[Rfam]
RNA sequence: UCUUAUUCCUUAGCUAGUUUUGCCUCCCUGCUUAUGAUCACACACAGGGAGACAAAACUAGCUGAGGAAUAAGA
Numbered sequence: 001u002c003u004u005a006u007u008c009c010u011u012a013g014c015u016a017g018u019u020u021u022g023c024c025u026c027c028c029u030g031c032u033u034a035u036g037a038u039c040a041c042a043c044a045c046a047g048g049g050a051g052a053c054a055a056a057a058c059u060a061g062c063u064g065a066g067g068a069a070u071a072a073g074a
Stems, first nucleotide, its partner, number of pairs: 001074022024051007033042001035040001

Background: Rfam assigns this 74-nucleotide RNA sequence from Bos taurus to the family "mir-2300 microRNA precursor family". The family's consensus secondary structure was predicted with RNAalifold. The organism belongs to Bos, within Eukaryota. It is one of the family's seed sequences. Its family is annotated with RISC complex and miRNA-mediated post-transcriptional gene silencing in the Gene Ontology.